RNA sequence: AAUUUAAAUUCAUCAAAAUUGAUUGAAUUUAAAACGGAGGAACCAAUGUUUGGGGCUAAUCUUAAGAGAGACACCUUCCAGUCUUAGCCCGUCAGCUAACUUCGUCGGCAAUGGAAGGAACU
Numbered sequence: 001a002a003u004u005u006a007a008a009u010u011c012a013u014c015a016a017a018a019u020u021g022a023u024u025g026a027a028u029u030u031a032a033a034a035c036g037g038a039g040g041a042a043c044c045a046a047u048g049u050u051u052g053g054g055g056c057u058a059a060u061c062u063u064a065a066g067a068g069a070g071a072c073a074c075c076u077u078c079c080a081g082u083c084u085u086a087g088c089c090c091g092u093c094a095g096c097u098a099a100c101u102u103c104g105u106c107g108g109c110a111a112u113g114g115a116a117g118g119a120a121c122u
Stems, first nucleotide, its partner, number of pairs: 003033010034105006044052002053090003061066001069084004
Dot-bracket structure: ..((((((((((...........))))))))))((((((....((.....))(((.....(....)..((((........))))...))).........)))))).................
Rfam assigns this 122-nucleotide RNA sequence from Anabaenopsis elenkinii to the family "c-di-AMP riboswitch aptamer (ydaO/yuaA leader)". Taxonomically the source falls in Anabaenopsis elenkinii (Bacteria, Cyanobacteriota, Nodulariaceae, Anabaenopsis).